Shown here is a 505-nucleotide part of an RNA from Neocallimastix californiae, a member of the family "Eukaryotic large subunit ribosomal RNA". The family is grouped with related families in Rfam's "LSU clan". The family's consensus secondary structure is taken from published work. The organism belongs to Neocallimastix, within Eukaryota.

RNA sequence: UAGAACAAUGUAGAUAAGGGAAGUCGGCAAAAUAGAUCCGUAACUUCGGGAUAAGGAUUGGCUCUAAGGGUUGGGUAUAUUGGGCCUCUGUUCUGCAGCUUUGAGACCGACUUGAGGACUUCCCGGCCUUCACGGGCUAGGAGGACUUCUUGUUGGAUUCGAGGUGAACGAGCUUUGGCAUGUCGGUUUCGGCCGGCGUCCGGUAUACAAUUAACAACCAACUUAGAACUGGUACGGACAAGGGGAAUCUGACUGUCUAAUUAAAACAUAGCAUUGCGAUGGCCAGAAAGUGGUGUUGACGCAAUGUGAUUUCUGCCCAGUGCUCUGAAUGUCAAAGUGAAGAAAUUCAACCAAGCGCGGGUAAACGGCGGGAGUAACUAUGACUCUCUUAAGGUAGCCAAAUGCCUCGUCAUCUAAUUAGUGACGCGCAUGAAUGGAUUAACGAGAUUCCCACUGUCCCUAUCUACUAUCUAGCGAAACCACAGCCAAGGGAACGGGCUUGGCA
Numbered sequence: 001u002a003g004a005a006c007a008a009u010g011u012a013g014a015u016a017a018g019g020g021a022a023g024u025c026g027g028c029a030a031a032a033u034a035g036a037u038c039c040g041u042a043a044c045u046u047c048g049g050g051a052u053a054a055g056g057a058u059u060g061g062c063u064c065u066a067a068g069g070g071u072u073g074g075g076u077a078u079a080u081u082g083g084g085c086c087u088c089u090g091u092u093c094u095g096c097a098g099c100u101u102u103g104a105g106a107c108c109g110a111c112u113u114g115a116g117g118a119c120u121u122c123c124c125g126g127c128c129u130u131c132a133c134g135g136g137c138u139a140g141g142a143g144g145a146c147u148u149c150u151u152g153u154u155g156g157a158u159u160c161g162a163g164g165u166g167a168a169c170g171a172g173c174u175u176u177g178g179c180a181u182g183u184c185g186g187u188u189u190c191g192g193c194c195g196g197c198g199u200c201c202g203g204u205a206u207a208c209a210a211u212u213a214a215c216a217a218c219c220a221a222c223u224u225a226g227a228a229c230u231g232g233u234a235c236g237g238a239c240a241a242g243g244g245g246a247a248u249c250u251g252a253c254u255g256u257c258u259a260a261u262u263a264a265a266a267c268a269u270a271g272c273a274u275u276g277c278g279a280u281g282g283c284c285a286g287a288a289a290g291u292g293g294u295g296u297u298g299a300c301g302c303a304a305u306g307u308g309a310u311u312u313c314u315g316c317c318c319a320g321u322g323c324u325c326u327g328a329a330u331g332u333c334a335a336a337g338u339g340a341a342g343a344a345a346u347u348c349a350a351c352c353a354a355g356c357g358c359g360g361g362u363a364a365a366c367g368g369c370g371g372g373a374g375u376a377a378c379u380a381u382g383a384c385u386c387u388c389u390u391a392a393g394g395u396a397g398c399c400a401a402a403u404g405c406c407u408c409g410u411c412a413u414c415u416a417a418u419u420a421g422u423g424a425c426g427c428g429c430a431u432g433a434a435u436g437g438a439u440u441a442a443c444g445a446g447a448u449u450c451c452c453a454c455u456g457u458c459c460c461u462a463u464c465u466a467c468u469a470u471c472u473a474g475c476g477a478a479a480c481c482a483c484a485g486c487c488a489a490g491g492g493a494a495c496g497g498g499c500u501u502g503g504c505a
Stems, first nucleotide, its partner, number of pairs: 001473004010467007018459003035059005044049001060230002063227006069219005075208009084179003090173003098165008107156005114149004119144005125138005231235001243452007250444002254268003271307008282294004311438003315369003320366002322362004327358001330357003338349004370388006389393001409425005486503005